[Rfam]
RNA: RNA anti-toxin A
Organism: Secundilactobacillus similis
RNA sequence: UAAUGUAGACAGAAAAAGGAAGCCCCGAGUGAAUAGGACUUCCCUUGUAGAACCGCUUAAGACGGUGGCAAACUUAAUAGAUUAGAUC
Numbered sequence: 001u002a003a004u005g006u007a008g009a010c011a012g013a014a015a016a017a018g019g020a021a022g023c024c025c026c027g028a029g030u031g032a033a034u035a036g037g038a039c040u041u042c043c044c045u046u047g048u049a050g051a052a053c054c055g056c057u058u059a060a061g062a063c064g065g066u067g068g069c070a071a072a073c074u075u076a077a078u079a080g081a082u083u084a085g086a087u088c
Stems, first nucleotide, its partner, number of pairs: 024037002027034001052066004057061001